The family of this 78-nucleotide RNA sequence from a Planctomycetaceae bacterium is "c-di-GMP-I-GGC riboswitch aptamer". The family is grouped with related families in Rfam's "c-di-GMP_I riboswitch clan". It scores 66 bits against the family's covariance model.
RNA sequence: CAGGAUAAAGCCAAAACCUGUGUGAGCAGGUGACGGAAAGCCACGGGUCUUCUUCUCAAGACAGCCGGGCCGCCAAAG
Numbered sequence: 001c002a003g004g005a006u007a008a009a010g011c012c013a014a015a016a017c018c019u020g021u022g023u024g025a026g027c028a029g030g031u032g033a034c035g036g037a038a039a040g041c042c043a044c045g046g047g048u049c050u051u052c053u054u055c056u057c058a059a060g061a062c063a064g065c066c067g068g069g070c071c072g073c074c075a076a077a078g
Stems, first nucleotide, its partner, number of pairs: 001078001004074001011036002016031006034064001040070003044067003047062003